A member of the RNA family "Bacterial RNase P class A" from Microbacterium sp. ZXX196, 334 nucleotides long.
RNA sequence: GACGGCCGCGUGGGGGUGCACCGCAUCCCCCCGAGGAACGUCCGGGCUCCAUAGGGCAGGGUGGUGGGUAACGCCCACCCGGGGUGACCCGCGGGACAGUGCCACAGAAAGCAAACCGCCGGGGACCCAGGUCCUCGGUAAGGGUGAAACGGUGGUGUAAGAGACCACCAGCCUCCGAGGUGACUCGGAGGGCUAGGUAAACCCCACCCGGAGCAAGGUCAAGAGGGGCCGUCGGCUGACGGCCCUGCGCGGACGUUCGAGGGCUGCCCGCCCGAGUCCGCGGGUAGACCGCACGAGGCUGCCGGCAACGACAGCCCUAGAUGGAUGGCCGUCU
Numbered sequence: 001g002a003c004g005g006c007c008g009c010g011u012g013g014g015g016g017u018g019c020a021c022c023g024c025a026u027c028c029c030c031c032c033g034a035g036g037a038a039c040g041u042c043c044g045g046g047c048u049c050c051a052u053a054g055g056g057c058a059g060g061g062u063g064g065u066g067g068g069u070a071a072c073g074c075c076c077a078c079c080c081g082g083g084g085u086g087a088c089c090c091g092c093g094g095g096a097c098a099g100u101g102c103c104a105c106a107g108a109a110a111g112c113a114a115a116c117c118g119c120c121g122g123g124g125a126c127c128c129a130g131g132u133c134c135u136c137g138g139u140a141a142g143g144g145u146g147a148a149a150c151g152g153u154g155g156u157g158u159a160a161g162a163g164a165c166c167a168c169c170a171g172c173c174u175c176c177g178a179g180g181u182g183a184c185u186c187g188g189a190g191g192g193c194u195a196g197g198u199a200a201a202c203c204c205c206a207c208c209c210g211g212a213g214c215a216a217g218g219u220c221a222a223g224a225g226g227g228g229c230c231g232u233c234g235g236c237u238g239a240c241g242g243c244c245c246u247g248c249g250c251g252g253a254c255g256u257u258c259g260a261g262g263g264c265u266g267c268c269c270g271c272c273c274g275a276g277u278c279c280g281c282g283g284g285u286a287g288a289c290c291g292c293a294c295g296a297g298g299c300u301g302c303c304g305g306c307a308a309c310g311a312c313a314g315c316c317c318u319a320g321a322u323g324g325a326u327g328g329c330c331g332u333c334u
Stems, first nucleotide, its partner, number of pairs: 001333007009033002012030006047213004054269004059209005064078005079093001080091004094204002099202002101198003116143002118139009151169006171193001172191008217290004249281006261273004297316005303310002
Description:
Ribonuclease P (RNase P) is a ubiquitous endoribonuclease, found in archaea, bacteria and eukarya as well as chloroplasts and mitochondria. Pairs were carried over by alignment from the consensus structure, which is taken from published work. A search with the family's covariance model found it, with a score of 254 bits. It is annotated as a ribozyme.